Overview:
Rfam assigns this 101-nucleotide RNA from Fervidibacillus halotolerans to the family "Guanidine-I riboswitch aptamer". This family represents a conserved RNA structure found upstream of the ykkC and yxkD genes in Bacillus subtilis and related genes in other bacteria. The function of this family is unclear although it has been suggested that it may function to switch on efflux pumps and detoxification systems in response to harmful environmental molecules.
RNA sequence: CUUAAAGUUUUCUAGGGUUCCGCAAAUGAUGAAUUGGUCUGGUCCGAGAGAAAACUCACAGCGAAAUCGCUGUGCCACGGAGGGAUAAAAGCCCGGGAGAU
Numbered sequence: 001c002u003u004a005a006a007g008u009u010u011u012c013u014a015g016g017g018u019u020c021c022g023c024a025a026a027u028g029a030u031g032a033a034u035u036g037g038u039c040u041g042g043u044c045c046g047a048g049a050g051a052a053a054a055c056u057c058a059c060a061g062c063g064a065a066a067u068c069g070c071u072g073u074g075c076c077a078c079g080g081a082g083g084g085a086u087a088a089a090a091g092c093c094c095g096g097g098a099g100a101u
Stems, first nucleotide, its partner, number of pairs: 007055006015045002020042002022039001023036003027032001057074007076096001078099001082094003
Pairs were carried over by alignment from the consensus structure.
The match comes from Rfam's covariance-model search (89 bits).
The literature on the family includes a 2004 paper in Proc Natl Acad Sci U S A by Barrick et al., "New RNA motifs suggest an expanded scope for riboswitches in bacterial genetic control".
Taxonomically the source falls in Fervidibacillus (Bacteria, Bacilli, Caryophanales, Bacillaceae).